RNA sequence: CAUCGGCAACCGGUCGAGCCUGUCUGAAAAGAUAAGUUCUCGGGUCCGAUACAAGCUUUCGUCGAUUUGACCACGGAUGUACUGGCAAACUGAUAAAAGCGAAUGAGGAAGGUCGGUGCGGUUUCGCCCCGGCCUUUUUUAUG
Numbered sequence: 001c002a003u004c005g006g007c008a009a010c011c012g013g014u015c016g017a018g019c020c021u022g023u024c025u026g027a028a029a030a031g032a033u034a035a036g037u038u039c040u041c042g043g044g045u046c047c048g049a050u051a052c053a054a055g056c057u058u059u060c061g062u063c064g065a066u067u068u069g070a071c072c073a074c075g076g077a078u079g080u081a082c083u084g085g086c087a088a089a090c091u092g093a094u095a096a097a098a099g100c101g102a103a104u105g106a107g108g109a110a111g112g113u114c115g116g117u118g119c120g121g122u123u124u125c126g127c128c129c130c131g132g133c134c135u136u137u138u139u140u141a142u143g
Stems, first nucleotide, its partner, number of pairs: 003049004007044001016039004052101001055100004062092001064090001068087002071085003103142014118127003
RNA: Alphaproteobacterial sRNA ar35
Organism: Rhizobium sp. Leaf371